[Rfam]
Nucleotides: 090
Stems, first nucleotide, its partner, number of pairs: 001012003023087008041077003045073002051068003
Number, partner (000 for none) and nucleotide at each position: 001012u002011g003010u004000a005000a006000g007000g008000g009000g010003g011002c012001a013000a014000g015000a016000a017000u018000u019000g020000a021000c022000u023087g024086a025085g026084a027083g028082g029081a030080c031000a032000u033000u034000g035000c036000u037000u038000g039000u040000a041077u042076a043075g044000g045073c046072g047000c048000a049000a050000u051068g052067c053066g054000g055000g056000g057000a058000u059000u060000u061000c062000g063000g064000g065000a066053u067052g068051u069000a070000c071000g072046c073045g074000a075043u076042u077041a078000g079000g080030g081029u082028c083027c084026u085025c086024u087023c088000c089000a090000g

About this RNA
Shown here is a 90-nucleotide RNA sequence from Rhinopomastus cyanomelas, a member of the family "Retrovirus direct repeat 1 (dr1)". By type it is a cis-regulatory element. Pairs were carried over by alignment from the consensus structure, which is taken from published work. The source organism's lineage runs through Eukaryota, Euteleostomi, Tetrapoda, Amniota and Rhinopomastus. It scores 65 bits against the family's covariance model. This family represents the direct repeat 1 (dr1) element commonly found in the 3' UTR of Avian sarcoma, Rous sarcoma and Avian leukosis viruses (Alpharetroviruses and Avian type C retroviruses). dr1 is required for efficient viral replication and is thought to be involved in genomic RNA packaging although this may not be its only role.